SAM-I/IV (S-adenosyl methionine) riboswitch aptamer: a 105-nucleotide RNA sequence from Sphingobium sp. C100.
The family's consensus secondary structure is taken from published work.
Rfam 15.1 lists 567 matches to the family in 508 species.
It scores 55 bits against the family's covariance model.
The family is grouped with related families in Rfam's "SAM clan".
A reference for the family is Weinberg et al. (2008), "The aptamer core of SAM-IV riboswitches mimics the ligand-binding site of SAM-I riboswitches", RNA.
[Rfam]
RNA sequence: UUCCAGCAUCAAGAGUCGGGCCGGCGCCCGACACCAACCUGCUCCCCAGCAAGGUGGUGCCUCCAGUGGAGGGAUGUGGCCGAACCGGCAACAAUCGGGACCCAG
Numbered sequence: 001u002u003c004c005a006g007c008a009u010c011a012a013g014a015g016u017c018g019g020g021c022c023g024g025c026g027c028c029c030g031a032c033a034c035c036a037a038c039c040u041g042c043u044c045c046c047c048a049g050c051a052a053g054g055u056g057g058u059g060c061c062u063c064c065a066g067u068g069g070a071g072g073g074a075u076g077u078g079g080c081c082g083a084a085c086c087g088g089c090a091a092c093a094a095u096c097g098g099g100a101c102c103c104a105g
Stems, first nucleotide, its partner, number of pairs: 006077005015032001017030005033058003038054003041050003047099001079089004